[Rfam]
RNA sequence: UCUAGAACUUGAGAUAUAGAAACACAUAACAAUGUCUAGUCUACAAGAUAAAUUCAGACUUCUCUUUUGUUGCUACAAUUUGAACUUCAAAAUGAUAGUAUUGAGUCUUGGACUUUUAUGAAUGUUUAGAACUAUAUCUUAGAUUUCUAUC
Number, nucleotide and partner (000 for none) at each position: 001u000002c000003u149004a148005g147006a146007a145008c142009u141010u000011g140012a139013g138014a137015u136016a135017u134018a133019g132020a000021a127022a126023c000024a125025c124026a123027u000028a000029a000030c000031a000032a119033u118034g117035u000036c000037u000038a115039g114040u000041c000042u112043a000044c000045a109046a108047g107048a106049u105050a000051a102052a101053u100054u000055c098056a000057g096058a000059c000060u094061u000062c000063u000064c000065u089066u000067u000068u000069g085070u084071u083072g000073c000074u000075a000076c000077a000078a000079u000080u000081u000082g000083a071084a070085c069086u000087u000088c000089a065090a000091a000092a000093u000094g060095a000096u057097a000098g055099u000100a053101u052102u051103g000104a000105g049106u048107c047108u046109u045110g000111g000112a042113c000114u039115u038116u000117u034118a033119u032120g000121a000122a000123u026124g025125u024126u022127u021128a000129g000130a000131a000132c019133u018134a017135u016136a015137u014138c013139u012140u011141a009142g008143a000144u000145u007146u006147c005148u004149a003150u000151c000